[Rfam]
RNA sequence: UCGACACCAUGGAUCUCCAGGUGGGUCACGUUUAGAGAUACACCAACCUGGAGGACUCCAUGCUGUUGA
Numbered sequence: 001u002c003g004a005c006a007c008c009a010u011g012g013a014u015c016u017c018c019a020g021g022u023g024g025g026u027c028a029c030g031u032u033u034a035g036a037g038a039u040a041c042a043c044c045a046a047c048c049u050g051g052a053g054g055a056c057u058c059c060a061u062g063c064u065g066u067u068g069a
Stems, first nucleotide, its partner, number of pairs: 001069006008062006014054009024044003
Shown here is a 69-nucleotide sequence from Equus caballus, a member of the family "mir-490 microRNA precursor family".
The sequence is in the family's curated seed alignment.
The source organism's lineage runs through Eukaryota, Bilateria, Mammalia, Perissodactyla and Equus.
The family has 19 seed sequences and 509 matches in Rfam 15.1.
Pairs were carried over by alignment from the consensus structure, which was predicted with RNAalifold.